Overview: RNase MRP: a 239-nucleotide sequence from Nothobranchius furzeri. It is annotated as a ribozyme. The family has 66 seed sequences and 3,510 matches in Rfam 15.1. Taxonomically the source falls in Nothobranchius (Eukaryota, Metazoa, Bilateria, Atherinomorphae). Rfam describes the family as follows. RNase MRP is an enzymatically active ribonucleoprotein with two distinct roles in eukaryotes. In mitochondria it plays a direct role in the initiation of mitochondrial DNA replication. In the nucleus it is involved in precursor rRNA processing, where it cleaves the internal transcribed spacer 1 between 18S and 5.8S rRNAs.
RNA sequence: GGGCAUUCAGAAGGCUUGCUGUCUGGGCUACUCACAGAGAACGUCGUUUCUCCUCACCCGCCCAGGGGAAAGUCCCCGGACCCGUGGCAGAAAGUGCUCUGGGUUAAUCCAGCGUCGGUCUGCGUGCCCAUCAGAGCAAAGACGUUCGUCUCGAACAGAGCUUGAAAACUCAGAUCGACAUUGUCACUGUUCAUAGAAAUGCAAGCGAUGAACAGAACGGGGCUCAUUCUCUGAAUGCA
Number, nucleotide and partner (000 for none) at each position: 001g000002g000003g238004c237005a236006u235007u234008c233009a232010g231011a230012a000013g000014g206015c205016u204017u203018g202019c201020u000021g000022u066023c065024u064025g063026g062027g061028c060029u000030a000031c000032u000033c000034a000035c000036a000037g052038a051039g050040a049041a048042c000043g000044u000045c000046g000047u000048u041049u040050c039051u038052c037053c000054u000055c000056a000057c000058c000059c000060g028061c027062c026063c025064a024065g023066g022067g000068g000069a000070a000071a224072g223073u000074c222075c221076c220077c219078g000079g000080a000081c000082c000083c000084g000085u000086g098087g097088c096089a095090g000091a000092a000093a000094g000095u089096g088097c087098u086099c112100u111101g110102g109103g108104u000105u000106a000107a000108u103109c102110c101111a100112g099113c000114g179115u178116c177117g176118g175119u174120c173121u172122g171123c000124g000125u000126g169127c000128c000129c000130a000131u000132c000133a000134g163135a162136g161137c160138a000139a000140a000141g000142a000143c000144g156145u155146u154147c153148g000149u000150c000151u000152c000153g147154a146155a145156c144157a000158g000159a000160g137161c136162u135163u134164g000165a000166a000167a000168a000169c126170u000171c122172a121173g120174a119175u118176c117177g116178a115179c114180a000181u000182u000183g000184u000185c000186a000187c000188u000189g000190u000191u000192c000193a000194u000195a000196g000197a000198a000199a000200u000201g019202c018203a017204a016205g015206c014207g000208a000209u000210g000211a000212a000213c000214a000215g000216a000217a000218c000219g077220g076221g075222g074223c072224u071225c000226a000227u000228u000229c000230u011231c010232u009233g008234a007235a006236u005237g004238c003239a000